Shown here is a 183-nucleotide RNA, a member of the family "Manganese Mn2+ riboswitch aptamer (yybP-ykoY)". About the family: This RNA was originally discovered in E. coli during a large scale screen and was named SraF. The family was later found to exist upstream of related families of protein genes in many bacteria, including the the yybP and ykoK genes in B. subtilis. On this family, see Argaman et al., Curr Biol 2001: "Novel small RNA-encoding genes in the intergenic regions of Escherichia coli". The family has 29 seed sequences and 1,126 matches in Rfam 15.1.
Nucleotides: 183
Stems, first nucleotide, its partner, number of pairs: 025050008051096010068086007
Number, partner (000 for none) and nucleotide at each position: 001000u002000g003000c004000g005000c006000c007000g008000u009000c010000a011000u012000u013000g014000g015000g016000g017000a018000g019000u020000a021000g022000c023000c024000g025050g026049u027048u028047u029046c030045u031044g032043g033000a034000g035000a036000a037000u038000a039000a040000a041000a042000a043032c044031c045030a046029g047028a048027a049026a050025c051096g052095c053094c054093c055092g056091u057090a058089u059088c060087a061000a062000c063000a064000u065000a066000c067000u068086c069085g070084u071083u072082u073081c074080g075000c076000c077000g078000u079000a080074u081073g082072a083071a084070a085069c086068g087060u088059g089058g090057u091056g092055c093054g094053g095052g096051c097000a098000g099000c100000c101000a102000g103000g104000u105000a106000a107000g108000g109000u110000u111000g112000g113000c114000g115000a116000g117000a118000c119000c120000a121000u122000a123000g124000a125000c126000a127000c128000g129000u130000a131000a132000c133000u134000c135000c136000g137000u138000c139000g140000u141000u142000u143000g144000g145000u146000u147000g148000g149000g150000g151000g152000u153000g154000g155000g156000u157000u158000a159000c160000g161000u162000g163000u164000a165000u166000a167000u168000g169000g170000a171000g172000c173000c174000a175000c176000c177000c178000g179000g180000c181000c182000g183000a